[Rfam]
Overview
The family of this 113-nucleotide RNA from Momordica charantia is "Plastid-psbA-1 3UTR RNA". The family's consensus secondary structure was predicted with LocARNA. NCBI's taxonomy places the organism under Eukaryota, Tracheophyta, Pentapetalae, Cucurbitales, Momordica. By type it is a cis-regulatory element. Its Rfam clan is "Plastid-psbA 3UTR RNA clan". The match comes from Rfam's covariance-model search (72 bits).
RNA sequence: UAAAAAAAAAAAGAAAUAUUGUUUGUCCAAGGUCUUAGUGUAUACGAGUUCUUGAAAGUAAAGGAGCAAUAACCAAUUUCUUGUUUUCUCAAGAGGAUUGGUAUUGCUCCUUU
Numbered sequence: 001u002a003a004a005a006a007a008a009a010a011a012a013g014a015a016a017u018a019u020u021g022u023u024u025g026u027c028c029a030a031g032g033u034c035u036u037a038g039u040g041u042a043u044a045c046g047a048g049u050u051c052u053u054g055a056a057a058g059u060a061a062a063g064g065a066g067c068a069a070u071a072a073c074c075a076a077u078u079u080c081u082u083g084u085u086u087u088c089u090c091a092a093g094a095g096g097a098u099u100g101g102u103a104u105u106g107c108u109c110c111u112u113u
Stems, first nucleotide, its partner, number of pairs: 001008001060113012075098001078095005